[Rfam]
Nucleotides: 075
Stems, first nucleotide, its partner, number of pairs: 001021005034069005040063002044059005
Number, partner (000 for none) and nucleotide at each position: 001021g002020g003019g004018g005017a006000g007000a008000g009000a010000c011000u012000u013000a014000g015000a016000a017005u018004c019003c020002c021001c022000g023000u024000g025000a026000a027000c028000c029000g030000u031000g032000u033000g034069u035068a036067a037066a038065u039000a040063g041062c042000a043000g044059u045058g046057c047056c048055u049000u050000u051000g052000g053000c054000c055048g056047g057046g058045c059044a060000a061000a062041g063040c064000g065038g066037u067036u068035u069034g070000u071000g072000a073000a074000u075000c

A member of the RNA family "L13-Bacteroidia ribosomal protein leader" from Prevotella sp. P3-120, 75 nucleotides long. The organism belongs to Prevotella, within Bacteria. The literature on the family includes a 2020 paper in BMC Microbiol by Eckert and Weinberg, "Discovery of 20 novel ribosomal leader candidates in bacteria and archaea". It is annotated as a cis-regulatory leader.